[Rfam]
RNA: mir-290 microRNA precursor family
RNA sequence: GUGGUACUCAAACGAUGGGGGCACUUGUUGCUCUGGAAUAAAGUGCCGCCAGGUUUUGAGCGCUGC
Numbered sequence: 001g002u003g004g005u006a007c008u009c010a011a012a013c014g015a016u017g018g019g020g021g022c023a024c025u026u027g028u029u030g031c032u033c034u035g036g037a038a039u040a041a042a043g044u045g046c047c048g049c050c051a052g053g054u055u056u057u058g059a060g061c062g063c064u065g066c
Base pairs, nucleotide, nucleotide: 004063005062007060008059009058010057011056012055016051017050018049020047021046022045023044024043025042026040027039028038